[Rfam]
RNA sequence: UUGAAGCUCCAUCUACAAAUGGAUAAGACUUUGGUCUGAUUGUAUUGUAUAGGAGUUUUUGAACUAAAAAAGGAGCAAUAGCUUCCCUCUUGUUUUUCUAAAGAGGGCGUUAUUGCUCCUUUUUU
Numbered sequence: 001u002u003g004a005a006g007c008u009c010c011a012u013c014u015a016c017a018a019a020u021g022g023a024u025a026a027g028a029c030u031u032u033g034g035u036c037u038g039a040u041u042g043u044a045u046u047g048u049a050u051a052g053g054a055g056u057u058u059u060u061g062a063a064c065u066a067a068a069a070a071a072g073g074a075g076c077a078a079u080a081g082c083u084u085c086c087c088u089c090u091u092g093u094u095u096u097u098c099u100a101a102a103g104a105g106g107g108c109g110u111u112a113u114u115g116c117u118c119c120u121u122u123u124u125u
Stems, first nucleotide, its partner, number of pairs: 008023005069122013084107002088103001090101002
The record is a 125-nucleotide RNA sequence from Archibaccharis asperifolia, which matches "Plastid-psbA-1 3UTR RNA" in Rfam. Rfam describes the family as follows. Plastid psbA-1 is a non-coding RNA (ncRNA) present in plastids. It is annotated as a cis-regulatory element. Clan: Plastid-psbA 3UTR RNA clan.